[Rfam]
RNA: mir-130 microRNA precursor family
RNA sequence: UCCAGGCCUGUGCUCCUUCCACUAGGCCAUAAUGGUAUUUACUGAAGCAGCAGCAUGGCUCAGUGGAAAGAGCAUGGGCUUGGGA
Numbered sequence: 001u002c003c004a005g006g007c008c009u010g011u012g013c014u015c016c017u018u019c020c021a022c023u024a025g026g027c028c029a030u031a032a033u034g035g036u037a038u039u040u041a042c043u044g045a046a047g048c049a050g051c052a053g054c055a056u057g058g059c060u061c062a063g064u065g066g067a068a069a070g071a072g073c074a075u076g077g078g079c080u081u082g083g084g085a
Stems, first nucleotide, its partner, number of pairs: 001085003005080006012073004017068003022063002025060006